[Rfam]
RNA sequence: UUGGGUCGCUGAAUUAGAGAUCGGCACCUGUACAUUUAUCUUAAAAUUUGGAGUGGUAUUAUGUCUCUAAGUGUUGAAACUAAAGCACAAAUCGUUGCUGAUUUCGGUCGUGACGCG
Numbered sequence: 001u002u003g004g005g006u007c008g009c010u011g012a013a014u015u016a017g018a019g020a021u022c023g024g025c026a027c028c029u030g031u032a033c034a035u036u037u038a039u040c041u042u043a044a045a046a047u048u049u050g051g052a053g054u055g056g057u058a059u060u061a062u063g064u065c066u067c068u069a070a071g072u073g074u075u076g077a078a079a080c081u082a083a084a085g086c087a088c089a090a091a092u093c094g095u096u097g098c099u100g101a102u103u104u105c106g107g108u109c110g111u112g113a114c115g116c117g
Stems, first nucleotide, its partner, number of pairs: 008025005047071007